[Rfam]
RNA sequence: CUGCAGACUUUUCCAGCGAGGCCGAGCCUGCUGUGGUUCUGUCCUUUCCUGUUCUGUCUGCUAGAGAACCGAGGGGCAGUUUGAGGCCCGGCUGUGGUUCCACACGGCGGGGUUAUAGGUUCUCCCCUGACAUCG
Numbered sequence: 001c002u003g004c005a006g007a008c009u010u011u012u013c014c015a016g017c018g019a020g021g022c023c024g025a026g027c028c029u030g031c032u033g034u035g036g037u038u039c040u041g042u043c044c045u046u047u048c049c050u051g052u053u054c055u056g057u058c059u060g061c062u063a064g065a066g067a068a069c070c071g072a073g074g075g076g077c078a079g080u081u082u083g084a085g086g087c088c089c090g091g092c093u094g095u096g097g098u099u100c101c102a103c104a105c106g107g108c109g110g111g112g113u114u115a116u117a118g119g120u121u122c123u124c125c126c127c128u129g130a131c132a133u134c135g
Stems, first nucleotide, its partner, number of pairs: 003061006019045003024039005072128005087112003091108002094105003
Small nucleolar RNA SNORA9: a 135-nucleotide sequence from Kryptolebias marmoratus. Rfam links the family to the GO terms RNA processing and nucleolus. The match comes from Rfam's covariance-model search (93 bits). Taxonomically the source falls in Kryptolebias (Eukaryota, Bilateria, Teleostei, Euacanthomorphacea). Clan: SNORA9 clan. The family's consensus secondary structure was predicted with PFOLD.